[Rfam]
Record summary:
This 69-nucleotide RNA sequence belongs to the Rfam family "L2-Alphaproteobacteria ribosomal protein leader". The base pairs follow the family's consensus structure, which is taken from published work.
RNA sequence: GGGGACCUUCGGGGCCCUAAACACACAGACAGGCGGGGCAACCCGCCGCAAAGCAACGGAAGACAGAAA
Numbered sequence: 001g002g003g004g005a006c007c008u009u010c011g012g013g014g015c016c017c018u019a020a021a022c023a024c025a026c027a028g029a030c031a032g033g034c035g036g037g038g039c040a041a042c043c044c045g046c047c048g049c050a051a052a053g054c055a056a057c058g059g060a061a062g063a064c065a066g067a068a069a
Stems, first nucleotide, its partner, number of pairs: 001018004006014003032047006